[Rfam]
RNA sequence: CUCUUAUCCUGAGCUGGUGGAGGGACAGACCCUGUGAAACCCAGCAACCUGCUCAAGCGAGGAAGGCUACGGUACAUAUUUAUUCCUAUCAAAACAGUUCACUUACAUAGAGCUGAUCCGGAAUUUUCUGAGCAUAGGUGCUAAACUGAGGCAAGGCACAGAUCCUUGAUCGAUAAGAG
Numbered sequence: 001c002u003c004u005u006a007u008c009c010u011g012a013g014c015u016g017g018u019g020g021a022g023g024g025a026c027a028g029a030c031c032c033u034g035u036g037a038a039a040c041c042c043a044g045c046a047a048c049c050u051g052c053u054c055a056a057g058c059g060a061g062g063a064a065g066g067c068u069a070c071g072g073u074a075c076a077u078a079u080u081u082a083u084u085c086c087u088a089u090c091a092a093a094a095c096a097g098u099u100c101a102c103u104u105a106c107a108u109a110g111a112g113c114u115g116a117u118c119c120g121g122a123a124u125u126u127u128c129u130g131a132g133c134a135u136a137g138g139u140g141c142u143a144a145a146c147u148g149a150g151g152c153a154a155g156g157c158a159c160a161g162a163u164c165c166u167u168g169a170u171c172g173a174u175a176a177g178a179g
Base pairs, nucleotide, nucleotide: 001179002178003177004176005175006174007173008172013042016041017040018039022032023031024030026151029147043142044141045140046139048138049137050134051133052132053131054130055129152168153167154166155165156164
RNA: SAM riboswitch aptamer (S box leader)
Organism: Metabacillus lacus